[Rfam]
Nucleotides: 076
Stems, first nucleotide, its partner, number of pairs: 013045001015044004021076007028040003049065006
Number, partner (000 for none) and nucleotide at each position: 001000a002000a003000a004000u005000g006000c007000a008000a009000g010000u011000u012000u013045g014000a015044g016043g017042c018041c019000a020000u021076a022075g023074c024073a025072g026071a027070a028040g029039c030038g031000u032000u033000c034000a035000c036000a037000g038030u039029g040028u041018g042017g043016c044015c045013c046000u047000g048000u049065c050064a051063g052062a053061u054060u055000c056000a057000a058000c059000a060054a061053a062052u063051u064050u065049g066000c067000c068000a069000a070027u071026u072025c073024u074023g075022u076021u